[Rfam]
RNA sequence: GUAUACCCAUCGACGAACUCAUUCGUACGGCAGGAGCGGGGGACCCCCAGGUAAGUCGCCGGGCCGGUCGGCAUUCGCCGCACGGAACGGCUCGGGGUGAAGUCGUGUCCCCCCAGGGCACGGCCGGGCACCUCCCCGCCCGAACCCGACAGCUCACCUCGCAGGCGCCGGAGAGGAACUUC
Numbered sequence: 001g002u003a004u005a006c007c008c009a010u011c012g013a014c015g016a017a018c019u020c021a022u023u024c025g026u027a028c029g030g031c032a033g034g035a036g037c038g039g040g041g042g043a044c045c046c047c048c049a050g051g052u053a054a055g056u057c058g059c060c061g062g063g064c065c066g067g068u069c070g071g072c073a074u075u076c077g078c079c080g081c082a083c084g085g086a087a088c089g090g091c092u093c094g095g096g097g098u099g100a101a102g103u104c105g106u107g108u109c110c111c112c113c114c115a116g117g118g119c120a121c122g123g124c125c126g127g128g129c130a131c132c133u134c135c136c137c138g139c140c141c142g143a144a145c146c147c148g149a150c151a152g153c154u155c156a157c158c159u160c161g162c163a164g165g166c167g168c169c170g171g172a173g174a175g176g177a178a179c180u181u182c
Base pairs, nucleotide, nucleotide: 011167012166014164019034020033036162037161038160039159040158041157046094095147096146097145103123104122105121106120107119108118126141127140128139129138